This 284-nucleotide RNA from Tumebacillus algifaecis belongs to the Rfam family "T-box leader". The organism belongs to Tumebacillus, within Bacteria. From the family's description: Uncharged tRNA acts as the effector for transcription antitermination of genes in the T-box leader family. Rfam classes the family as a cis-regulatory leader.

[Rfam]
RNA sequence: AUACUUGCGAUGAGAAGGAAAGUACAGGUCUUGUGGUCGUGCAGAGAGCCGAUGGGUGGUGCGAAUCGGUCGCCAGGGAUGCUGGAAACACACCUUUGAGCUGUGGCCCGAACGGCUGUCAGAUGGCAGCUGAGUAGACGUCACCGGAGACUUCCACCGUUAUCAGCGGAAGGGGGGUUAGUUGUUUUGACUCCUGAUGAGUGGUCAUGUGCGGCCUGGGUUCUGAUGAACUGGGUGGUGCAUGGCAAGAUGGGUGGUACCGCGAGCGAGCUCUCGUCCCGUUA
Numbered sequence: 001a002u003a004c005u006u007g008c009g010a011u012g013a014g015a016a017g018g019a020a021a022g023u024a025c026a027g028g029u030c031u032u033g034u035g036g037u038c039g040u041g042c043a044g045a046g047a048g049c050c051g052a053u054g055g056g057u058g059g060u061g062c063g064a065a066u067c068g069g070u071c072g073c074c075a076g077g078g079a080u081g082c083u084g085g086a087a088a089c090a091c092a093c094c095u096u097u098g099a100g101c102u103g104u105g106g107c108c109c110g111a112a113c114g115g116c117u118g119u120c121a122g123a124u125g126g127c128a129g130c131u132g133a134g135u136a137g138a139c140g141u142c143a144c145c146g147g148a149g150a151c152u153u154c155c156a157c158c159g160u161u162a163u164c165a166g167c168g169g170a171a172g173g174g175g176g177g178u179u180a181g182u183u184g185u186u187u188u189g190a191c192u193c194c195u196g197a198u199g200a201g202u203g204g205u206c207a208u209g210u211g212c213g214g215c216c217u218g219g220g221u222u223c224u225g226a227u228g229a230a231c232u233g234g235g236u237g238g239u240g241c242a243u244g245g246c247a248a249g250a251u252g253g254g255u256g257g258u259a260c261c262g263c264g265a266g267c268g269a270g271c272u273c274u275c276g277u278c279c280c281g282u283u284a
Base pairs, nucleotide, nucleotide: 007101008100015096016095017094018093025084026083027082038072039071048070049069050068051067052066053065104143105142106141107140109137145159146158147157204246205245206244207243208242209241210240211239212238251281252280253279254278262277263276264275265274266273